[Rfam]
RNA sequence: AUAAAUCUUCAGGGCGGGGUGUGAGUCCCCACCGGCGGUAAAGCCCGCGAGCAGUAGCAGAUCCGGUUAGAUUCCGGAGCCGACAGUAUAGUCUGGAUGAAAGAAGAUGGUA
Numbered sequence: 001a002u003a004a005a006u007c008u009u010c011a012g013g014g015c016g017g018g019g020u021g022u023g024a025g026u027c028c029c030c031a032c033c034g035g036c037g038g039u040a041a042a043g044c045c046c047g048c049g050a051g052c053a054g055u056a057g058c059a060g061a062u063c064c065g066g067u068u069a070g071a072u073u074c075c076g077g078a079g080c081c082g083a084c085a086g087u088a089u090a091g092u093c094u095g096g097a098u099g100a101a102a103g104a105a106g107a108u109g110g111u112a
Stems, first nucleotide, its partner, number of pairs: 005108006017029003031092002033082002035048004043080002051058002062078005084095003